[Rfam]
Rfam assigns this 172-nucleotide RNA from Eschrichtius robustus to the family "FGF-1 internal ribosome entry site (IRES)". NCBI's taxonomy places the organism under Eukaryota, Euteleostomi, Mammalia, Mysticeti, Eschrichtius. Rfam describes the family as follows. This family represents the FGF-1 internal ribosome entry site (IRES). The FGF-1 IRES is present in the 5' UTR of the mRNA and allows cap-independent translation. It is thought that FGF-1 IRES activity is strictly controlled and highly tissue specific. The match comes from Rfam's covariance-model search (90 bits). On this family, see Martineau et al., Mol Cell Biol 2004: "Internal Ribosome Entry Site Structural Motifs Conserved among Mammalian Fibroblast Growth Factor 1 Alternatively Spliced mRNAs". Rfam links the family to the GO term ribosome binding.
RNA sequence: GACUCCAGGGGAAUAAGGGCAUUGCCUCCUUUGGUGAAGGCCACUCCCUUCUGAUGGAGGAUAGGAGCUCCCUUCCUCCCGCGGUGACCUGCCUGCAGCGGUCCUGGUAGGACAGUGUGGAUGCCAUAGGCUGCACAGCUGCCAUUACCCCAGAAGGAAAGUGCCCCAGAGC
Number, nucleotide and partner (000 for none) at each position: 001g000002a000003c171004u170005c169006c000007a000008g167009g166010g165011g164012a000013a000014u158015a000016a049017g048018g047019g046020c000021a000022u000023u000024g000025c040026c039027u038028c000029c036030u000031u000032u000033g000034g000035u000036g029037a000038a027039g026040g025041c000042c000043a000044c000045u000046c019047c018048c017049u016050u154051c153052u152053g000054a000055u000056g000057g078058a000059g075060g074061a073062u000063a000064g071065g070066a000067g000068c000069u000070c065071c064072c000073u061074u060075c059076c000077u000078c057079c000080c000081g000082c000083g146084g145085u141086g140087a000088c138089c000090u000091g000092c000093c000094u135095g134096c133097a132098g131099c130100g000101g000102u000103c000104c119105u000106g000107g000108u000109a000110g000111g000112a000113c000114a000115g000116u000117g000118u000119g104120g000121a000122u000123g000124c000125c000126a000127u000128a000129g000130g099131c098132u097133g096134c095135a094136c000137a000138g088139c000140u086141g085142c000143c000144a000145u084146u083147a000148c000149c000150c000151c000152a052153g051154a050155a000156g000157g000158a014159a000160a000161g000162u000163g000164c011165c010166c009167c008168a000169g005170a004171g003172c000